Shown here is a 134-nucleotide sequence from Perca fluviatilis, a member of the family "Small nucleolar RNA SNORA75".
The family's RNA type in Rfam is H/ACA-box small nucleolar RNA.
Its family is annotated with RNA processing and nucleolus in the Gene Ontology.
On this family, see Ganot et al., Genes Dev 1997: "The family of box ACA small nucleolar RNAs is defined by an evolutionarily conserved secondary structure and ubiquitous sequence elements essential for RNA accumulation".
RNA sequence: ACCUUCUCAUGAGCUCCUCUUAAUCUUACCCAUGAUUAUGCAUGGAUUCGCACGAGAAGCAGAGUCAAUGUACAGUUAGAACAGGCUCAUUCUACUCUCAUAUGGGUGUUGCCCAUGUCUGCUGUGCAACAAGU
Dot-bracket structure: ..((((((....(((((...(((((........))))).....)))...))..))))))..........((((((............(((((...........))))).............)))))).......